[Rfam]
RNA: RNA Staph. aureus E (RoxS)
RNA sequence: GUGAAGUUGAUCACAAACAAACAUAUACCCCUUUGUUUGACCGUGAAAAAUUUCUCCCAUCCCCUUUGUUCGUAAGAAAAAGCUUCGCUUCGGCGGGGCUUUUUC
Numbered sequence: 001g002u003g004a005a006g007u008u009g010a011u012c013a014c015a016a017a018c019a020a021a022c023a024u025a026u027a028c029c030c031c032u033u034u035g036u037u038u039g040a041c042c043g044u045g046a047a048a049a050a051u052u053u054c055u056c057c058c059a060u061c062c063c064c065u066u067u068g069u070u071c072g073u074a075a076g077a078a079a080a081a082g083c084u085u086c087g088c089u090u091c092g093g094c095g096g097g098g099c100u101u102u103u104u105c
Stems, first nucleotide, its partner, number of pairs: 003054006011046004018039006070075001079102010